[Rfam]
RNA sequence: UUUGGGCUGUAAACAUCCCCGACUGGAAGCUGUCUAUCCACAGAGCUUUCAGUCUGAUGUUUGCUGCUGCUGG
Numbered sequence: 001u002u003u004g005g006g007c008u009g010u011a012a013a014c015a016u017c018c019c020c021g022a023c024u025g026g027a028a029g030c031u032g033u034c035u036a037u038c039c040a041c042a043g044a045g046c047u048u049u050c051a052g053u054c055u056g057a058u059g060u061u062u063g064c065u066g067c068u069g070c071u072g073g
Stems, first nucleotide, its partner, number of pairs: 002072001004070001006068001009064009022053010
RNA: mir-30 microRNA precursor family
Organism: Lates calcarifer